[Rfam]
RNA sequence: CUUGAUGGAGCCCAGCAGCAGCGGCCGCUCCCGGUCCUGCCCGUACGCGGCCAGCAGCGCCUGCGCUUC
Numbered sequence: 001c002u003u004g005a006u007g008g009a010g011c012c013c014a015g016c017a018g019c020a021g022c023g024g025c026c027g028c029u030c031c032c033g034g035u036c037c038u039g040c041c042c043g044u045a046c047g048c049g050g051c052c053a054g055c056a057g058c059g060c061c062u063g064c065g066c067u068u069c
Base pairs, nucleotide, nucleotide: 015025016024028065030063032059033058037054038053039052041050042049043048